Rfam assigns this 171-nucleotide sequence from Anoxynatronum buryatiense to the family "Group II catalytic intron D1-D4-3". Lineage of the source: Bacteria > Bacillati > Clostridia > Eubacteriales > Anoxynatronum. Group II introns are found in rRNA, tRNA and mRNA of organelles in fungi, plants and protists, and also in mRNA in bacteria.
RNA sequence: UCCAUCGUGAGGUGGAGUGUAAAGGAAGGCGACGGCAAAUCUCUGGCCUGACGAACAGAAAUCGCAUCAGGCAUAAACUGAGGAUAAGGCCGCCUAACAGGUCAAAGUCCAAUAACUACCCAGAAUCAGUUUGUGUAAAUGCGGCAGGUAGAUGGAGAGAAAGACUGCGAC
Numbered sequence: 001u002c003c004a005u006c007g008u009g010a011g012g013u014g015g016a017g018u019g020u021a022a023a024g025g026a027a028g029g030c031g032a033c034g035g036c037a038a039a040u041c042u043c044u045g046g047c048c049u050g051a052c053g054a055a056c057a058g059a060a061a062u063c064g065c066a067u068c069a070g071g072c073a074u075a076a077a078c079u080g081a082g083g084a085u086a087a088g089g090c091c092g093c094c095u096a097a098c099a100g101g102u103c104a105a106a107g108u109c110c111a112a113u114a115a116c117u118a119c120c121c122a123g124a125a126u127c128a129g130u131u132u133g134u135g136u137a138a139a140u141g142c143g144g145c146a147g148g149u150a151g152a153u154g155g156a157g158a159g160a161a162a163g164a165c166u167g168c169g170a171c
Stems, first nucleotide, its partner, number of pairs: 001016006028171001030169002036163001040158006046149005062144005071136003075132007082110004088103004

Its family is annotated with Group II intron splicing in the Gene Ontology. It scores 146 bits against the family's covariance model. Pairs were carried over by alignment from the consensus structure.